[Rfam]
Notes: A member of the RNA family "MIR6274 microRNA precursor family" from Prunus avium, 107 nucleotides long. A search with the family's covariance model found it, with a score of 85 bits. NCBI's taxonomy places the organism under Eukaryota, Streptophyta, Embryophyta, rosids, Prunus.
RNA sequence: GGGAUAACUCUUUUUGCUAUGUCCGGCCAAUAACGCAAUGACACGUAGGAUAACUUUUCCACAUGUCAUUGUGUUAUUGGCCGAAGAUAGCAAAACAGUGUUAUACC
Numbered sequence: 001g002g003g004a005u006a007a008c009u010c011u012u013u014u015u016g017c018u019a020u021g022u023c024c025g026g027c028c029a030a031u032a033a034c035g036c037a038a039u040g041a042c043a044c045g046u047a048g049g050a051u052a053a054c055u056u057u058u059c060c061a062c063a064u065g066u067c068a069u070u071g072u073g074u075u076a077u078u079g080g081c082c083g084a085a086g087a088u089a090g091c092a093a094a095a096c097a098g099u100g101u102u103a104u105a106c107c
Base pairs, nucleotide, nucleotide: 002106004104005103012095013094014093015092016091017090018089019088020087022085024083025082026081027080028079029078030077031076032075033074034073035072036071037070038069039068040067041066042065043064045062046061048059049058050057
Pairs were carried over by alignment from the consensus structure, which was predicted with RNAalifold.